[Rfam]
RNA sequence: AAGAGCAUAUAGUGAUAUAUGCUCGUUUAACAGAAGUCAGCCGAAGCCAUAGUAUCCCGCACCAGCGGGAGAAGGGC
Numbered sequence: 001a002a003g004a005g006c007a008u009a010u011a012g013u014g015a016u017a018u019a020u021g022c023u024c025g026u027u028u029a030a031c032a033g034a035a036g037u038c039a040g041c042c043g044a045a046g047c048c049a050u051a052g053u054a055u056c057c058c059g060c061a062c063c064a065g066c067g068g069g070a071g072a073a074g075g076g077c
Stems, first nucleotide, its partner, number of pairs: 001027002004023008037044002046077003055070006
RNA: Group II catalytic intron D1-D4-1